This 106-nucleotide RNA from Parundibacterium terreum belongs to the Rfam family "TPP riboswitch aptamer (THI element)". About the family: Vitamin B(1) in its active form thiamin pyrophosphate (TPP) is an essential coenzyme that is synthesised by coupling of pyrimidine and thiazole moieties in bacteria. A search with the family's covariance model found it, with a score of 63 bits.
[Rfam]
RNA sequence: GAAAAAUGCUAGGGGUCCUGGCGAACACAUUGUGUUUGGCCGGGUGAGAAAUACCCUUGAACCUGAUCUGGAUAAUGCCAGCGAAGGGAAGCAAGACUAGUCACGG
Numbered sequence: 001g002a003a004a005a006a007u008g009c010u011a012g013g014g015g016u017c018c019u020g021g022c023g024a025a026c027a028c029a030u031u032g033u034g035u036u037u038g039g040c041c042g043g044g045u046g047a048g049a050a051a052u053a054c055c056c057u058u059g060a061a062c063c064u065g066a067u068c069u070g071g072a073u074a075a076u077g078c079c080a081g082c083g084a085a086g087g088g089a090a091g092c093a094a095g096a097c098u099a100g101u102c103a104c105g106g
Base pairs, nucleotide, nucleotide: 007093008092009091010090011057012056013055014054016051017044018043019042020041021040062087063086064085068081069080070079071078